[Rfam]
RNA: S4-Clostridia ribosomal protein leader
RNA sequence: GAAAGGCCGUGGAUCUUACGGCCGCGGCUGGGUGUGAUACCGAGACACCCCAAUUAGG
Numbered sequence: 001g002a003a004a005g006g007c008c009g010u011g012g013a014u015c016u017u018a019c020g021g022c023c024g025c026g027g028c029u030g031g032g033u034g035u036g037a038u039a040c041c042g043a044g045a046c047a048c049c050c051c052a053a054u055u056a057g058g
Stems, first nucleotide, its partner, number of pairs: 005029008030050006